[Rfam]
RNA: Ascomycota telomerase RNA, nucleotides 1153 to 1339
Organism: Chaetomium globosum
RNA sequence: AACACCGCCAUGUCUCCGACACGGCACCUUCCCCCCUUCCUAGGCCCUCUUUAUGGUUUGUGGCAAGGAGAUGAUAGCACGGUUUUUUUGAGGAUGUCUUUUGUCCGUGCGGUACCCGCCCUUCUUUCGUUGUGCUUGUCUUUUGGCAGGGCGGCGUUGGAAGAGGAAACAAAAACUAGUCCCUGUU
Numbered sequence: 001a002a003c004a005c006c007g008c009c010a011u012g013u014c015u016c017c018g019a020c021a022c023g024g025c026a027c028c029u030u031c032c033c034c035c036c037u038u039c040c041u042a043g044g045c046c047c048u049c050u051u052u053a054u055g056g057u058u059u060g061u062g063g064c065a066a067g068g069a070g071a072u073g074a075u076a077g078c079a080c081g082g083u084u085u086u087u088u089u090g091a092g093g094a095u096g097u098c099u100u101u102u103g104u105c106c107g108u109g110c111g112g113u114a115c116c117c118g119c120c121c122u123u124c125u126u127u128c129g130u131u132g133u134g135c136u137u138g139u140c141u142u143u144u145g146g147c148a149g150g151g152c153g154g155c156g157u158u159g160g161a162a163g164a165g166g167a168a169a170c171a172a173a174a175a176c177u178a179g180u181c182c183c184u185g186u187u
Stems, first nucleotide, its partner, number of pairs: 007025003011021002014018001030074002032070001034068002039063002043058004093181003096176002099174006119166002121163004132157004138152005